[Rfam]
Nucleotides: 100
Stems, first nucleotide, its partner, number of pairs: 006095008020042004044080003047076001051074003057067002
Number, partner (000 for none) and nucleotide at each position: 001000c002000g003000a004000c005000g006095u007094g008093c009092g010091g011090c012089g013088g014000g015000a016000g017000a018000g019000u020042c021041c022040c023039g024000u025000c026000c027000a028000g029000c030000a031000g032000c033000a034000c035000c036000g037000g038000u039023c040022g041021g042020g043000c044080g045079c046078c047076g048000u049000a050000g051074g052073a053072g054000c055000a056000a057067u058066u059000c060000c061000u062000c063000c064000c065000c066058a067057g068000g069000a070000a071000a072053c073052u074051c075000u076047c077000a078046g079045g080044c081000c082000c083000c084000c085000g086000u087000a088013c089012c090011g091010c092009c093008g094007c095006a096000c097000c098000g099000a100000g